Record summary
A member of the RNA family "Small nucleolar RNA SNORD23" from Pipistrellus kuhlii, 108 nucleotides long. On this family, see Galardi et al., Mol Cell Biol 2002: "Purified box C/D snoRNPs are able to reproduce site-specific 2'-O-methylation of target RNA in vitro". The base pairs follow the family's consensus structure.
RNA sequence: UGCCCAGUGAUGACAUCAUCCUUGCUCCCCGUGCCCCCCGGGGCUGUGGGCGACACUAUGGCUACCCCCAGGCUGGGCCAGUGGGCUGACGCCUGGGGGCUGAGGGCA
Numbered sequence: 001u002g003c004c005c006a007g008u009g010a011u012g013a014c015a016u017c018a019u020c021c022u023u024g025c026u027c028c029c030c031g032u033g034c035c036c037c038c039c040g041g042g043g044c045u046g047u048g049g050g051c052g053a054c055a056c057u058a059u060g061g062c063u064a065c066c067c068c069c070a071g072g073c074u075g076g077g078c079c080a081g082u083g084g085g086c087u088g089a090c091g092c093c094u095g096g097g098g099g100c101u102g103a104g105g106g107c108a
Base pairs, nucleotide, nucleotide: 001108002107003106004105005104